This 79-nucleotide RNA from Medicago truncatula belongs to the Rfam family "MIR5269 microRNA precursor family". The organism belongs to Medicago, within Eukaryota. Rfam links the family to the GO terms RISC complex and miRNA-mediated post-transcriptional gene silencing. The base pairs follow the family's consensus structure, which was predicted with RNAalifold. A search with the family's covariance model found it, with a score of 64 bits.
RNA sequence: UUGAUUUAAAUUAGUGUAGGUCUACACUUUGAAAAUUAAAUUCACACAAAGUGAUGAGACAUGCAUUGAUUUUAUCUAA
Numbered sequence: 001u002u003g004a005u006u007u008a009a010a011u012u013a014g015u016g017u018a019g020g021u022c023u024a025c026a027c028u029u030u031g032a033a034a035a036u037u038a039a040a041u042u043c044a045c046a047c048a049a050a051g052u053g054a055u056g057a058g059a060c061a062u063g064c065a066u067u068g069a070u071u072u073u074a075u076c077u078a079a
Stems, first nucleotide, its partner, number of pairs: 001079003006074001008072011023056002025053007